[Rfam]
RNA sequence: UCCUCGCUCAAAGGAUCGCAUUCAAAGCUUACACACAGAGAAUUUUCCAGUUCUCUCCUCUUCUACCAAGAAGAGUCUUGCUUUGGGAGAAAGUCCCCGGACACCCUGUCUUUCGUCUCUGGCGAUAGACAGGCAAUGCGGAAACGCGCCGCCAUAAAAGCAAUUUGAUAGCGGCUGACUGCCCUAUUCCCUACCGGUGCUGAGUGCGUACUCGACGCACACUGUGUGGAAACAAUGGGGUAUACCUCUGUGCCGGAGAGGGGUUUAUUGGGUUGCCUUUCGUCGUGUUUGGAUAGUCAUGCGAUUGCUCAGCUACUGAGUUAGCUGGGUAACUCAAUGGGGCUCAUUCUUGAGGCGAGG
Numbered sequence: 001u002c003c004u005c006g007c008u009c010a011a012a013g014g015a016u017c018g019c020a021u022u023c024a025a026a027g028c029u030u031a032c033a034c035a036c037a038g039a040g041a042a043u044u045u046u047c048c049a050g051u052u053c054u055c056u057c058c059u060c061u062u063c064u065a066c067c068a069a070g071a072a073g074a075g076u077c078u079u080g081c082u083u084u085g086g087g088a089g090a091a092a093g094u095c096c097c098c099g100g101a102c103a104c105c106c107u108g109u110c111u112u113u114c115g116u117c118u119c120u121g122g123c124g125a126u127a128g129a130c131a132g133g134c135a136a137u138g139c140g141g142a143a144a145c146g147c148g149c150c151g152c153c154a155u156a157a158a159a160g161c162a163a164u165u166u167g168a169u170a171g172c173g174g175c176u177g178a179c180u181g182c183c184c185u186a187u188u189c190c191c192u193a194c195c196g197g198u199g200c201u202g203a204g205u206g207c208g209u210a211c212u213c214g215a216c217g218c219a220c221a222c223u224g225u226g227u228g229g230a231a232a233c234a235a236u237g238g239g240g241u242a243u244a245c246c247u248c249u250g251u252g253c254c255g256g257a258g259a260g261g262g263g264u265u266u267a268u269u270g271g272g273u274u275g276c277c278u279u280u281c282g283u284c285g286u287g288u289u290u291g292g293a294u295a296g297u298c299a300u301g302c303g304a305u306u307g308c309u310c311a312g313c314u315a316c317u318g319a320g321u322u323a324g325c326u327g328g329g330u331a332a333c334u335c336a337a338u339g340g341g342g343c344u345c346a347u348u349c350u351u352g353a354g355g356c357g358a359g360g
Stems, first nucleotide, its partner, number of pairs: 002360007009352003014306006022087001023085006038055007092344002095342004107135004137148004150272001152270001154268005164259003172255004238248003308329008
Rfam assigns this 360-nucleotide sequence from Aspergillus nidulans to the family "RNase MRP". Rfam's curators put it in the seed alignment. Rfam's curators write: RNase MRP is an enzymatically active ribonucleoprotein with two distinct roles in eukaryotes. It is annotated as a ribozyme.